RNA sequence: UUCUUAUCAAGAGAGGUGGAGGGACUGGCCCUGAGAAACCUCGGCAACAGCUUUUAAGCGAUGUGCCAACUCCAGAUACGUUAAUUCGUAGAAGAUAAGAA
Number, nucleotide and partner (000 for none) at each position: 001u101002u100003c099004u098005u097006a096007u095008c094009a000010a000011g000012a000013g042014a041015g040016g039017u038018g000019g000020a000021g031022g030023g029024a000025c075026u074027g073028g072029c023030c022031c021032u000033g000034a000035g000036a000037a000038a017039c016040c015041u014042c013043g067044g066045c065046a064047a000048c063049a062050g059051c058052u057053u000054u000055u000056a000057a052058g051059c050060g000061a000062u049063g048064u046065g045066c044067c043068a000069a000070c000071u093072c028073c027074a026075g025076a000077u090078a089079c088080g087081u000082u000083a000084a000085u000086u000087c080088g079089u078090a077091g000092a000093a071094g008095a007096u006097a005098a004099g003100a002101a001
SAM riboswitch aptamer (S box leader): a 101-nucleotide RNA sequence from Cerasibacillus quisquiliarum. Its family is annotated with regulation of gene expression in the Gene Ontology.